[Rfam]
RNA sequence: GUGCAAAUGAUGGAAAAAUCACUAUUUGGAAAAGAAUGACAUGAACAAAGGAACCGCUGAUGUGC
Dot-bracket structure: (((((.......................................................)))))

A member of the RNA family "Small nucleolar RNA SNORD42" from Loxodonta africana, 65 nucleotides long. The source organism's lineage runs through Eukaryota, Opisthokonta, Eutheria, Afrotheria and Loxodonta. The family's consensus secondary structure was predicted with PFOLD. About the family: snoRNA U42 is found in intron 3 of the ribosomal protein L23a (RPL23a) gene in humans and is also present in mice. Rfam classes the family as a C/D-box small nucleolar RNA. Gene Ontology terms of the family: RNA processing and nucleolus.